[Rfam]
RNA sequence: GGUUGCAUUACUGGGCAAUUAGUCCUUUGGCAGUUAACCACUCACCUGCACUUCAUACACGUACGUGAUUUAGUUCACAAGGCAGAGACGUUCAUUGCCAAAGGAUAUUUGCCCGGCAAUUCAGCU
Numbered sequence: 001g002g003u004u005g006c007a008u009u010a011c012u013g014g015g016c017a018a019u020u021a022g023u024c025c026u027u028u029g030g031c032a033g034u035u036a037a038c039c040a041c042u043c044a045c046c047u048g049c050a051c052u053u054c055a056u057a058c059a060c061g062u063a064c065g066u067g068a069u070u071u072a073g074u075u076c077a078c079a080a081g082g083c084a085g086a087g088a089c090g091u092u093c094a095u096u097g098c099c100a101a102a103g104g105a106u107a108u109u110u111g112c113c114c115g116g117c118a119a120u121u122c123a124g125c126u
Base pairs, nucleotide, nucleotide: 005122007120008119009118011116012115013114014113015112016111017110018109022106023105024104025103028100029099030098031097032096033095034094036092037091038090
Rfam assigns this 126-nucleotide sequence from Quercus lobata to the family "mir-399 microRNA precursor family". On this family, see Jones-Rhoades and Bartel, Mol Cell 2004: "Computational Identification of Plant MicroRNAs and Their Targets, Including a Stress-Induced miRNA". mir-399 was identified in both Arabidopsis thaliana and Oryza sativa computationally and was later experimentally verified. mir-399 is thought to target mRNAs coding for a phosphatase transporter. The mature sequence is excised from the 3' arm of the hairpin. The source organism's lineage runs through Eukaryota, Spermatophyta, Gunneridae, Fagaceae and Quercus. Its family is annotated with RISC complex and miRNA-mediated post-transcriptional gene silencing in the Gene Ontology.